[Rfam]
RNA sequence: AUAAUAAGUAACAAUAACCUUUGUAUAAGCCCGAUAAUAAGGUUUGGGUGUUUCUACCAUACUACCGUAAAUAGUAUAACUAUGAAGAAGUAAUCCACGAAG
Numbered sequence: 001a002u003a004a005u006a007a008g009u010a011a012c013a014a015u016a017a018c019c020u021u022u023g024u025a026u027a028a029g030c031c032c033g034a035u036a037a038u039a040a041g042g043u044u045u046g047g048g049u050g051u052u053u054c055u056a057c058c059a060u061a062c063u064a065c066c067g068u069a070a071a072u073a074g075u076a077u078a079a080c081u082a083u084g085a086a087g088a089a090g091u092a093a094u095c096c097a098c099g100a101a102g
Stems, first nucleotide, its partner, number of pairs: 019087007029049006059077006
The family of this 102-nucleotide sequence from Clostridium argentinense is "Purine riboswitch aptamer". The organism belongs to Clostridium argentinense, within Bacteria. Pairs were carried over by alignment from the consensus structure, which is taken from published work.